[Rfam]
RNA sequence: GGCUCAUCCAGAGGGGCAGAGGGACCGGCCCAGUGAAGCCCCGGCAACCACCCGCAUCAGUGCGCGGCAGGUGCUAAUUCCGUCCUGAGAUGCAUCCGGCUCUCGGGAAAGAUGAGGA
Numbered sequence: 001g002g003c004u005c006a007u008c009c010a011g012a013g014g015g016g017c018a019g020a021g022g023g024a025c026c027g028g029c030c031c032a033g034u035g036a037a038g039c040c041c042c043g044g045c046a047a048c049c050a051c052c053c054g055c056a057u058c059a060g061u062g063c064g065c066g067g068c069a070g071g072u073g074c075u076a077a078u079u080c081c082g083u084c085c086u087g088a089g090a091u092g093c094a095u096c097c098g099g100c101u102c103u104c105g106g107g108a109a110a111g112a113u114g115a116g117g118a
Stems, first nucleotide, its partner, number of pairs: 003116006013042005021031003026082003043075004048071002052067004079110001084107006
Rfam assigns this 118-nucleotide sequence from Candidatus Protofrankia californiensis to the family "SAM riboswitch aptamer (S box leader)". Pairs were carried over by alignment from the consensus structure, which is taken from published work. Taxonomically the source falls in Protofrankia (Bacteria, Actinomycetes, Frankiales, Frankiaceae).